[Rfam]
RNA sequence: UGAAGGUGCCGCAACUGGCGAGCCGAUGGUCCGUUCGGCAAGCGUGGAAGCGACCACGAGGGAGCGGCACGACGGGGAAGUCCCGUGACCACUUCCGUGGUGCCGUCCGCCUGGGCACCCGGG
Numbered sequence: 001u002g003a004a005g006g007u008g009c010c011g012c013a014a015c016u017g018g019c020g021a022g023c024c025g026a027u028g029g030u031c032c033g034u035u036c037g038g039c040a041a042g043c044g045u046g047g048a049a050g051c052g053a054c055c056a057c058g059a060g061g062g063a064g065c066g067g068c069a070c071g072a073c074g075g076g077g078a079a080g081u082c083c084c085g086u087g088a089c090c091a092c093u094u095c096c097g098u099g100g101u102g103c104c105g106u107c108c109g110c111c112u113g114g115g116c117a118c119c120c121g122g123g
Stems, first nucleotide, its partner, number of pairs: 006070007015061002017111004044057004100118005

The record is a 123-nucleotide RNA from Wenjunlia tyrosinilytica, which matches "ZMP/ZTP riboswitch aptamer (pfl RNA motif)" in Rfam.
NCBI's taxonomy places the organism under Bacteria, Bacillati, Kitasatosporales, Streptomycetaceae, Wenjunlia.
It scores 47 bits against the family's covariance model.